[Rfam]
RNA sequence: AUACUAUGAUGGUUGCAUAGUUCAGCAGAAAGUCGUGAAGAGAUGUACUUUGUCUGAUGUAUCU
Numbered sequence: 001a002u003a004c005u006a007u008g009a010u011g012g013u014u015g016c017a018u019a020g021u022u023c024a025g026c027a028g029a030a031a032g033u034c035g036u037g038a039a040g041a042g043a044u045g046u047a048c049u050u051u052g053u054c055u056g057a058u059g060u061a062u063c064u
Base pairs, nucleotide, nucleotide: 001062002061003060004059006036007035008034009033010032013028014027015026016025041051042050043049

Description
Rfam assigns this 64-nucleotide RNA sequence from Erinaceus europaeus to the family "Small nucleolar RNA SNORD77". Its family is annotated with nucleolus and RNA processing in the Gene Ontology. The base pairs follow the family's consensus structure, which was predicted with RNAalifold. The literature on the family includes a 2004 paper in Curr Biol by Tycowski et al., "Guide RNAs with 5' caps and novel box C/D snoRNA-like domains for modification of snRNAs in metazoa". Taxonomically the source falls in Erinaceus (Eukaryota, Deuterostomia, Vertebrata, Laurasiatheria). By type it is a C/D-box small nucleolar RNA. From the family's description: U77 belongs to the C/D family of snoRNAs. It is predicted to guide 2'O-ribose methylation of large 28S rRNA subunit at position A1521. The C/D snoRNAs U44, U47, U74, U75, U76, U78, U79, U80 and U81 share the same host gene as U77 (non-coding).